Rfam assigns this 122-nucleotide sequence from Solicola gregarius to the family "mraW RNA". A search with the family's covariance model found it, with a score of 56 bits. It is annotated as a cis-regulatory element.
RNA sequence: CCGGCGUCGUCCGACGAGGUCUCCAGUCCGCUUGUUUCCGCGCUCUGACGCACCUUCCCCGGUGUCAGAUCGCGAACUUCCCGGACAAGCGGACGGGGACCUGGUCGGACGAAGCCACACAC
Numbered sequence: 001c002c003g004g005c006g007u008c009g010u011c012c013g014a015c016g017a018g019g020u021c022u023c024c025a026g027u028c029c030g031c032u033u034g035u036u037u038c039c040g041c042g043c044u045c046u047g048a049c050g051c052a053c054c055u056u057c058c059c060c061g062g063u064g065u066c067a068g069a070u071c072g073c074g075a076a077c078u079u080c081c082c083g084g085a086c087a088a089g090c091g092g093a094c095g096g097g098g099a100c101c102u103g104g105u106c107g108g109a110c111g112a113a114g115c116c117a118c119a120c121a122c
Base pairs, nucleotide, nucleotide: 010109011108012107013106014105015104018101019100021098022097023096024095026094027093028092029091030090031089032088033087034086035085039074040073041072042071044069045068046067047066048065049064050063051062